[Rfam]
This 81-nucleotide RNA from Streptomyces cacaoi belongs to the Rfam family "nrdJ RNA". Lineage of the source: Bacteria > Bacillati > Actinomycetes > Kitasatosporales > Streptomyces. The family's RNA type in Rfam is small RNA.
RNA sequence: GCUCGGCCUGUGCGCGCAGCGUGCACGGGCUCAUCAAACAGGCACAGUUCCCCGGGAAGAACCGGGGUACAUCGGGGCGUU
Numbered sequence: 001g002c003u004c005g006g007c008c009u010g011u012g013c014g015c016g017c018a019g020c021g022u023g024c025a026c027g028g029g030c031u032c033a034u035c036a037a038a039c040a041g042g043c044a045c046a047g048u049u050c051c052c053c054g055g056g057a058a059g060a061a062c063c064g065g066g067g068u069a070c071a072u073c074g075g076g077g078c079g080u081u
Stems, first nucleotide, its partner, number of pairs: 005032001006030011047070002050067005